RNA sequence: CUGACAGGCGACCGUCUGCUCAGAUACUGACCCCGGUACCUCGUACGGCCGGGGCAG
Numbered sequence: 001c002u003g004a005c006a007g008g009c010g011a012c013c014g015u016c017u018g019c020u021c022a023g024a025u026a027c028u029g030a031c032c033c034c035g036g037u038a039c040c041u042c043g044u045a046c047g048g049c050c051g052g053g054g055c056a057g
Base pairs, nucleotide, nucleotide: 001023002022003021004020005018006017007016008015027057028056029055031054032053033052034051035050036049037048

The family of this 57-nucleotide RNA from Streptomyces acidiscabies is "L17-Actino-Proteobacteria ribosomal protein leader". Rfam classes the family as a cis-regulatory leader. On this family, see Eckert and Weinberg, BMC Microbiol 2020: "Discovery of 20 novel ribosomal leader candidates in bacteria and archaea".